Rfam assigns this 101-nucleotide RNA sequence from Zizania palustris to the family "Small nucleolar RNA snoR99".
[Rfam]
RNA sequence: GUGCCUAUGGGAAGAACAGGUCCCCAUAUUUACCUCCAUUUCGUUCACUUUGUCAGCUAAUAGCCAUAAAUUUUUAGCUGAUCAUUAAGGAUGGGAAAUGU
Number, nucleotide and partner (000 for none) at each position: 001g000002u000003g000004c000005c000006u000007a000008u000009g000010g000011g000012a000013a000014g000015a000016a000017c000018a000019g000020g000021u000022c000023c000024c000025c000026a000027u000028a000029u000030u000031u000032a000033c000034c000035u095036c094037c093038a092039u091040u090041u000042c000043g000044u000045u000046c000047a000048c000049u000050u000051u000052g082053u081054c080055a079056g078057c077058u076059a075060a000061u000062a000063g000064c000065c000066a000067u000068a000069a000070a000071u000072u000073u000074u000075u059076a058077g057078c056079u055080g054081a053082u052083c000084a000085u000086u000087a000088a000089g000090g040091a039092u038093g037094g036095g035096a000097a000098a000099u000100g000101u000
Rfam 15.1 lists 733 matches to the family in 222 species. On this family, see Marker et al., Curr Biol 2002: "Experimental RNomics: identification of 140 candidates for small non-messenger RNAs in the plant Arabidopsis thaliana". The match comes from Rfam's covariance-model search (85 bits).